[Rfam]
The family of this 45-nucleotide RNA from Hoylesella marshii is "Acido-Lenti-1 RNA". Lineage of the source: Bacteria > Pseudomonadati > Bacteroidota > Hoylesella > Hoylesella marshii.
RNA sequence: CCCAAGGCGUUGCCUUGGGCUAUUAUCUAUCGCACUUACAGCGCU
Numbered sequence: 001c002c003c004a005a006g007g008c009g010u011u012g013c014c015u016u017g018g019g020c021u022a023u024u025a026u027c028u029a030u031c032g033c034a035c036u037u038a039c040a041g042c043g044c045u
Stems, first nucleotide, its partner, number of pairs: 001019008032044002035041002